RNA sequence: UUUUAUCAAAAAACUGAUGCAGAACCUUGUGUAUGAGAGUUUAAGCAACUCGUCAAGGAACGUUUGGUAAUAAGUCGUUGUUGGUGUCGUAAUGGGAUACUGUUGCGUAUCAAGUGAGUAUUCUUGGUAACAAGGGGAAAGCCAGUGUAAAAGCAUUGGAGCGCAAAGAACGUGUGCAAAGUGUGACCAAAUGUAAGGUAGCGAACUUGUCGAGACGACAAUAGAAAGCUAGGUUGAUAAGACUUAGCCCCUCCGUAAAGAGAAUUGCUAAGGGAUUGGCAUUUAGCACUGACGGAAACAUCCAAAGAAGUCCUUCGCCGUGAAGUGAUUAGAAAUAAUCUAUAAGACAAGAAACGCGUGAGAGUAGCAGUAGGCGGUAAAUUAAAGGAUGAUACUCUAAUAUACCGAAUGCCCCUGUGAAAUUUGUAGGCUGUCAUGCCUGACCACAUCUCGUAAGGCUGCAAUAUGCCAGCGGUCGCUCCGACUGGUACGGUAUUGUAGAAUGUGUGACCGAACAACAUUGCAAUCACAUGGCGUAGAGAGAAAUACUCCGCAUAGUUUUUUGAUGAAG
Numbered sequence: 001u002u003u004u005a006u007c008a009a010a011a012a013a014c015u016g017a018u019g020c021a022g023a024a025c026c027u028u029g030u031g032u033a034u035g036a037g038a039g040u041u042u043a044a045g046c047a048a049c050u051c052g053u054c055a056a057g058g059a060a061c062g063u064u065u066g067g068u069a070a071u072a073a074g075u076c077g078u079u080g081u082u083g084g085u086g087u088c089g090u091a092a093u094g095g096g097a098u099a100c101u102g103u104u105g106c107g108u109a110u111c112a113a114g115u116g117a118g119u120a121u122u123c124u125u126g127g128u129a130a131c132a133a134g135g136g137g138a139a140a141g142c143c144a145g146u147g148u149a150a151a152a153g154c155a156u157u158g159g160a161g162c163g164c165a166a167a168g169a170a171c172g173u174g175u176g177c178a179a180a181g182u183g184u185g186a187c188c189a190a191a192u193g194u195a196a197g198g199u200a201g202c203g204a205a206c207u208u209g210u211c212g213a214g215a216c217g218a219c220a221a222u223a224g225a226a227a228g229c230u231a232g233g234u235u236g237a238u239a240a241g242a243c244u245u246a247g248c249c250c251c252u253c254c255g256u257a258a259a260g261a262g263a264a265u266u267g268c269u270a271a272g273g274g275a276u277u278g279g280c281a282u283u284u285a286g287c288a289c290u291g292a293c294g295g296a297a298a299c300a301u302c303c304a305a306a307g308a309a310g311u312c313c314u315u316c317g318c319c320g321u322g323a324a325g326u327g328a329u330u331a332g333a334a335a336u337a338a339u340c341u342a343u344a345a346g347a348c349a350a351g352a353a354a355c356g357c358g359u360g361a362g363a364g365u366a367g368c369a370g371u372a373g374g375c376g377g378u379a380a381a382u383u384a385a386a387g388g389a390u391g392a393u394a395c396u397c398u399a400a401u402a403u404a405c406c407g408a409a410u411g412c413c414c415c416u417g418u419g420a421a422a423u424u425u426g427u428a429g430g431c432u433g434u435c436a437u438g439c440c441u442g443a444c445c446a447c448a449u450c451u452c453g454u455a456a457g458g459c460u461g462c463a464a465u466a467u468g469c470c471a472g473c474g475g476u477c478g479c480u481c482c483g484a485c486u487g488g489u490a491c492g493g494u495a496u497u498g499u500a501g502a503a504u505g506u507g508u509g510a511c512c513g514a515a516c517a518a519c520a521u522u523g524c525a526a527u528c529a530c531a532u533g534g535c536g537u538a539g540a541g542a543g544a545a546a547u548a549c550u551c552c553g554c555a556u557a558g559u560u561u562u563u564u565g566a567u568g569a570a571g
Base pairs, nucleotide, nucleotide: 007568008567011564012563013562016559018557019556025058026057027056028055029054037051038050039049040048041047060173061172062171063170064169065168079116080115081114082112083111084110088107089106090105091104092103093102094101095100119139121136122135123134124133125132126131143158144157145156146155147154181532182531183530184529185528186527191522198512201357202356203355206351207350208349209348210347211346212314214312215311216310232244233243234242235241252296253295254294255293256292262284263283264282266281267280268279272303273302274301315377316376317375318374327340328339329338330337331336361423367418368417369416370415404494405493406492407491429441430440446506447505448504459501460500461499462498463497464496467495470487471486472485473483474482475481539551540550541549
RNA: ROOL RNA
Organism: Candidatus Enterococcus wittei